[Rfam]
RNA sequence: UCAUGAUUCUCUGGUUUUUGUGGAACAGCUCAUGCACAUUUUAUUCCAUGAGUUGUCCCACAAAGAACACAGAUCAAUGA
Numbered sequence: 001u002c003a004u005g006a007u008u009c010u011c012u013g014g015u016u017u018u019u020g021u022g023g024a025a026c027a028g029c030u031c032a033u034g035c036a037c038a039u040u041u042u043a044u045u046c047c048a049u050g051a052g053u054u055g056u057c058c059c060a061c062a063a064a065g066a067a068c069a070c071a072g073a074u075c076a077a078u079g080a
Stems, first nucleotide, its partner, number of pairs: 002079003008073003012069002015066009025056007033048002

Background:
A member of the RNA family "mir-2009 microRNA precursor family" from Patiria miniata, 80 nucleotides long. The family has 3 seed sequences and 3 matches in Rfam 15.1. The organism belongs to Patiria, within Eukaryota. Pairs were carried over by alignment from the consensus structure, which was predicted with RNAalifold.